A member of the RNA family "c-di-AMP riboswitch aptamer (ydaO/yuaA leader)" from Paenibacillus thalictri, 147 nucleotides long. A search with the family's covariance model found it, with a score of 91 bits. The organism belongs to Paenibacillus, within Bacteria.

[Rfam]
RNA sequence: AUUGAAUAAAAGCCGAAUUUCUUUAUGAAAACGGGGGAACCAUGAGUUUCAAUUGGGGUGAAUUUGGCAGAAGCGGCGCUUCUGCUGAUAGGGUGCCUGUAAACCCGAAUCCGUCAGCUAACCUCGUAGGCUUAUUUCAGGAACCAA
Numbered sequence: 001a002u003u004g005a006a007u008a009a010a011a012g013c014c015g016a017a018u019u020u021c022u023u024u025a026u027g028a029a030a031a032c033g034g035g036g037g038a039a040c041c042a043u044g045a046g047u048u049u050c051a052a053u054u055g056g057g058g059u060g061a062a063u064u065u066g067g068c069a070g071a072a073g074c075g076g077c078g079c080u081u082c083u084g085c086u087g088a089u090a091g092g093g094u095g096c097c098u099g100u101a102a103a104c105c106c107g108a109a110u111c112c113g114u115c116a117g118c119u120a121a122c123c124u125c126g127u128a129g130g131c132u133u134a135u136u137u138c139a140g141g142a143a144c145c146a147a
Base pairs, nucleotide, nucleotide: 011132012131013130014129018030019029020028031127032126033125034124035123036122041055042054056112057111058110064088065087066086067085068084069083070082071081091106092105093104094103